[Rfam]
RNA sequence: AUAUACACUGAGUGGCCAGAUUUUUAUGAUCUCUGAGUGCAUAAUUAUCUAGCCACUCAGUGUAUAU
Numbered sequence: 001a002u003a004u005a006c007a008c009u010g011a012g013u014g015g016c017c018a019g020a021u022u023u024u025u026a027u028g029a030u031c032u033c034u035g036a037g038u039g040c041a042u043a044a045u046u047a048u049c050u051a052g053c054c055a056c057u058c059a060g061u062g063u064a065u066a067u
Base pairs, nucleotide, nucleotide: 004064005063006062007061008060009059010058011057012056013055014054015053016052019049020048021047024044025043026042027041028040
RNA: mir-9256 microRNA precursor family
Organism: Cnephaeus nilssonii